[Rfam]
RNA sequence: AUAAACAAGCAGAAGCACCCGCUUCUCACCUGAUUGACGCACCAGCAGUUGGCAGGUUUGAAUGUAAUAAUAAAUGACCUAUUGCGUCGUUUAAUGCGGGUAUGCACUCAUGCCCGCAUUUUUUUAUUGCU
Numbered sequence: 001a002u003a004a005a006c007a008a009g010c011a012g013a014a015g016c017a018c019c020c021g022c023u024u025c026u027c028a029c030c031u032g033a034u035u036g037a038c039g040c041a042c043c044a045g046c047a048g049u050u051g052g053c054a055g056g057u058u059u060g061a062a063u064g065u066a067a068u069a070a071u072a073a074a075u076g077a078c079c080u081a082u083u084g085c086g087u088c089g090u091u092u093a094a095u096g097c098g099g100g101u102a103u104g105c106a107c108u109c110a111u112g113c114c115c116g117c118a119u120u121u122u123u124u125u126a127u128u129g130c131u
Stems, first nucleotide, its partner, number of pairs: 011026006028057003036050003039046002095118010